Overview: Lysine riboswitch aptamer: a 172-nucleotide sequence from Catenibacillus scindens. Taxonomically the source falls in Catenibacillus (Bacteria, Bacillati, Bacillota, Clostridia). It scores 101 bits against the family's covariance model.
RNA sequence: AGAAUAAGUAGAGGCGCAUUUUGCAUCAGUAGCGGGGCGGAUAUGGCAGGCAUAGAUGAACCUCCGUGAAAGGGUACGAUGCCGAAGAAACGUACAUGCCUGAGGUGGCGUUUCUGGGCACACAGUGAAUAGCUGGGUGACUGUCAUCGCAAGAUGGAGUGCUGCUUAACAG
Numbered sequence: 001a002g003a004a005u006a007a008g009u010a011g012a013g014g015c016g017c018a019u020u021u022u023g024c025a026u027c028a029g030u031a032g033c034g035g036g037g038c039g040g041a042u043a044u045g046g047c048a049g050g051c052a053u054a055g056a057u058g059a060a061c062c063u064c065c066g067u068g069a070a071a072g073g074g075u076a077c078g079a080u081g082c083c084g085a086a087g088a089a090a091c092g093u094a095c096a097u098g099c100c101u102g103a104g105g106u107g108g109c110g111u112u113u114c115u116g117g118g119c120a121c122a123c124a125g126u127g128a129a130u131a132g133c134u135g136g137g138u139g140a141c142u143g144u145c146a147u148c149g150c151a152a153g154a155u156g157g158a159g160u161g162c163u164g165c166u167u168a169a170c171a172g
Base pairs, nucleotide, nucleotide: 006167007166008165009164010163011162016082017081018080019079020078022076023075024074032067033066034065035064036063037062086115087114088113089112090111091110092109093108095107096106097105116142117141119139120138121137123135124134125133126132144157145156146155147154148153